A member of the RNA family "Glycine riboswitch aptamer" from Luteimonas sp. FCS-9, 97 nucleotides long. The organism belongs to Luteimonas, within Bacteria. It scores 61 bits against the family's covariance model.

RNA sequence: CGGGAAAACUCUGGAGAGACCGGUUCGAUCCGGCGCCGAAGGUGCAUGGGGACGCGUCACCCCCCGAACUCUCAGGCAAAAGGACAGAGGGGCACGA
Numbered sequence: 001c002g003g004g005a006a007a008a009c010u011c012u013g014g015a016g017a018g019a020c021c022g023g024u025u026c027g028a029u030c031c032g033g034c035g036c037c038g039a040a041g042g043u044g045c046a047u048g049g050g051g052a053c054g055c056g057u058c059a060c061c062c063c064c065c066g067a068a069c070u071c072u073c074a075g076g077c078a079a080a081a082g083g084a085c086a087g088a089g090g091g092g093c094a095c096g097a
Base pairs, nucleotide, nucleotide: 009089010088011087012086013085020033021032022031023030035077036076037075038073039072042071044069048064049063050062051061